Background
A member of the RNA family "mir-1 microRNA precursor family" from Chanos chanos, 76 nucleotides long. The source organism's lineage runs through Eukaryota, Chordata, Gonorynchiformes, Chanidae and Chanos. Its family is annotated with RISC complex and miRNA-mediated post-transcriptional gene silencing in the Gene Ontology. Rfam's curators write: This family represents the microRNA (miRNA) mir-1 family. miRNAs are transcribed as ~70nt precursors (modelled here) and subsequently processed by the Dicer enzyme to give a ~22nt product. The literature on the family includes a 2001 paper in Science by Lee and Ambros, "An extensive class of small RNAs in Caenorhabditis elegans".
[Rfam]
RNA sequence: UCUGAAACCACACACUUCCUUACAUUCCAUAUCUGAUUUCAUCAUAUGGGCAUAUAAGGAAGUAUGUCAUCUCAGA
Numbered sequence: 001u002c003u004g005a006a007a008c009c010a011c012a013c014a015c016u017u018c019c020u021u022a023c024a025u026u027c028c029a030u031a032u033c034u035g036a037u038u039u040c041a042u043c044a045u046a047u048g049g050g051c052a053u054a055u056a057a058g059g060a061a062g063u064a065u066g067u068c069a070u071c072u073c074a075g076a
Stems, first nucleotide, its partner, number of pairs: 007070001010067003014063009024053001027049005